The family of this 93-nucleotide RNA sequence from Alligator mississippiensis is "Mammalian CPEB3 ribozyme". Pairs were carried over by alignment from the consensus structure, which is taken from published work. About the family: The mammalian CPEB3 ribozyme is a self cleaving RNA located in the second intron of the CPEB3 gene which belongs to a family of genes regulating messenger RNA polyadenylation. This ribozyme is highly conserved and found only in mammals. The CPEB3 ribozyme is structurally and biochemically related to the human hepatitis delta virus (HDV) ribozyme and the HDV ribozyme is proposed to have arisen from the human transcriptome. There is currently only one other known self cleaving ribozyme in mammals, the CoTC motif. A search with the family's covariance model found it, with a score of 49 bits. NCBI's taxonomy places the organism under Eukaryota, Opisthokonta, Chordata, Sauropsida, Alligator.
RNA sequence: GCAGGUGCACUGGGGGCCAUAGCAGAAGCGGUUACAUCAUGACCCCUGUCAGAUAAUACCUGGUGAUACCCAGUAAUACCUGCAAAUUCUGCU
Numbered sequence: 001g002c003a004g005g006u007g008c009a010c011u012g013g014g015g016g017c018c019a020u021a022g023c024a025g026a027a028g029c030g031g032u033u034a035c036a037u038c039a040u041g042a043c044c045c046c047u048g049u050c051a052g053a054u055a056a057u058a059c060c061u062g063g064u065g066a067u068a069c070c071c072a073g074u075a076a077u078a079c080c081u082g083c084a085a086a087u088u089c090u091g092c093u
Stems, first nucleotide, its partner, number of pairs: 013046004018041001021093007028040001030038001050082003054078002